A member of the RNA family "mir-130 microRNA precursor family" from Hucho hucho, 80 nucleotides long.
The match comes from Rfam's covariance-model search (42 bits).
Its family is annotated with miRNA-mediated post-transcriptional gene silencing and RISC complex in the Gene Ontology.
For this family Rfam cites "Identification of tissue-specific microRNAs from mouse" (Lagos-Quintana et al., Curr Biol, 2002).

RNA sequence: AAUGACACCCUAUUCCCUAUAUAGUGCGCUACUUUUGACAGUCAAAAGUAGUGCACUAUUUAGGGGAUAGGGUGCAAUUU
Numbered sequence: 001a002a003u004g005a006c007a008c009c010c011u012a013u014u015c016c017c018u019a020u021a022u023a024g025u026g027c028g029c030u031a032c033u034u035u036u037g038a039c040a041g042u043c044a045a046a047a048g049u050a051g052u053g054c055a056c057u058a059u060u061u062a063g064g065g066g067a068u069a070g071g072g073u074g075c076a077a078u079u080u
Stems, first nucleotide, its partner, number of pairs: 001080002006074005012068008022058009
Dot-bracket structure: ((...(((((.((((((((..(((((((((...................)))))))))..)))))))).)))))....))